U11 spliceosomal RNA: a 128-nucleotide RNA from Quercus lobata.
RNA sequence: UAAAAGGGUCGGUUGGCUAAAUAUGCCACGCUCGCCCUAGAUUGGUGAGUGCUGUAUGGAAAUCAAGACAUAUGGCUGACAUAAUUUGUGGAAACCAAUAGGGUCGGCUCCCUCUAGCCGACCCCCCA
Number, nucleotide and partner (000 for none) at each position: 001u000002a000003a000004a000005a000006g000007g000008g080009u079010c078011g077012g076013u000014u028015g027016g026017c025018u000019a000020a000021a000022u000023a000024u000025g017026c016027c015028a014029c051030g050031c049032u048033c047034g046035c045036c044037c000038u000039a000040g000041a000042u000043u000044g036045g035046u034047g033048a032049g031050u030051g029052c075053u074054g073055u072056a071057u070058g069059g000060a000061a000062a000063u000064c000065a000066a000067g000068a000069c058070a057071u056072a055073u054074g053075g052076c012077u011078g010079a009080c008081a000082u000083a000084a000085u000086u000087u000088g000089u000090g000091g000092a000093a000094a000095c000096c000097a000098a000099u000100a000101g123102g000103g122104u121105c120106g119107g118108c000109u000110c000111c117112c000113u000114c000115u000116a000117g111118c107119c106120g105121a104122c103123c101124c000125c000126c000127c000128a000
A search with the family's covariance model found it, with a score of 69 bits. It is annotated as a spliceosomal small nuclear RNA. Pairs were carried over by alignment from the consensus structure, which is taken from published work.